This 273-nucleotide sequence from Nannospalax galili belongs to the Rfam family "Mason-Pfizer monkey virus packaging signal". By type it is a cis-regulatory element.

[Rfam]
RNA sequence: UGGUGCCCAAUGUGGGGCCUGGAUACCGGGGGACAACGUGAGGGACAUGAUGAAAGAAGAAGAGGUGUGCACCCGCUCAAAUAGUUUGGAGACGUCGUGGUAGCCUGCUGUGACCAAGCCGACAGGUAAGUUGGUCGUUAAUCAUGGGGCAAGAAUUAAGUCAGCAUGAGAAAUAUGUGAUACAGUUGAGAGACGCUUUACAGGCAAGAGGAGUAAAGGUUACAACCGAGUAUUUAUUUCAUUUUUUUGAUUUCAUGAAAGACAUCUGCCCAU
Dot-bracket structure: .....(((...(((.........)))..))).....(((.......)))....................................(((....(..(((((.......))))).....)....).)).....(.((..(((....))).)).)....(((((.................................)).))).......((((((...((((...........)))).......)))))).........(..(.(....).)..)
On this family, see Mustafa et al., Virus Res 2004: "Mutational analysis of the predicted secondary RNA structure of the Mason-Pfizer monkey virus packaging signal".